[Rfam]
RNA: Glycine riboswitch aptamer
RNA sequence: CGCCUGCGCGGGAGAGUUCCGAGGCAUCCAGUCUCGGACGCCGAAGGAGCAAUACCUCCCCGUCAAUCUCUCAGGCACACGGACGCGUGUGGG
Numbered sequence: 001c002g003c004c005u006g007c008g009c010g011g012g013a014g015a016g017u018u019c020c021g022a023g024g025c026a027u028c029c030a031g032u033c034u035c036g037g038a039c040g041c042c043g044a045a046g047g048a049g050c051a052a053u054a055c056c057u058c059c060c061c062g063u064c065a066a067u068c069u070c071u072c073a074g075g076c077a078c079a080c081g082g083a084c085g086c087g088u089g090u091g092g093g
Stems, first nucleotide, its partner, number of pairs: 006088004011084001018038006040076003043072002047070003054063002